The family of this 72-nucleotide RNA from Eptatretus burgeri is "mir-192/215 microRNA precursor family".
This family represents the human microRNA (miRNA) precursors mir-192 and mir-215. Animal miRNAs are transcribed as ~70nt precursors and subsequently processed by the Dicer enzyme to give a ~22nt product.
[Rfam]
RNA sequence: AUUGGGCAAUGACCUAUGAUUUGACAGCUGGUUCCAACUCCCACCUGUCAGUUUCGUAGGUCAAAGUUCAGU
Numbered sequence: 001a002u003u004g005g006g007c008a009a010u011g012a013c014c015u016a017u018g019a020u021u022u023g024a025c026a027g028c029u030g031g032u033u034c035c036a037a038c039u040c041c042c043a044c045c046u047g048u049c050a051g052u053u054u055c056g057u058a059g060g061u062c063a064a065a066g067u068u069c070a071g072u
Stems, first nucleotide, its partner, number of pairs: 001072007010063002013060004018054002021051007029043003